Rfam assigns this 45-nucleotide sequence from Cytobacillus kochii to the family "PreQ1 (pre queuosine) riboswitch aptamer". A search with the family's covariance model found it, with a score of 51 bits. The organism belongs to Cytobacillus, within Bacteria. For this family Rfam cites "Identification of four genes necessary for biosynthesis of the modified nucleoside queuosine" (Reader et al., J Biol Chem, 2004). Pairs were carried over by alignment from the consensus structure. About the family: This family is a bacterial riboswitch that binds to the metabolite preQ1, an intermediate in the biosynthesis of the modified nucleoside queuosine from GTP. One example of this riboswitch is located in the leader of the Bacillus subtilis ykvJKLM (queCDEF) operon which encodes four genes necessary for queuosine production. PreQ1 binding to the riboswitch aptamer is thought to induce premature transcription termination within the leader to down-regulate expression of these genes.
RNA sequence: GUUGACGUGGUUCGAAACCAUCCCACGAUAAAAAACUAGGAGUGU
Dot-bracket structure: .....(((((.....[......))))).........]........
Numbered sequence: 001g002u003u004g005a006c007g008u009g010g011u012u013c014g015a016a017a018c019c020a021u022c023c024c025a026c027g028a029u030a031a032a033a034a035a036c037u038a039g040g041a042g043u044g045u
Stems, first nucleotide, its partner, number of pairs: 006027005016037001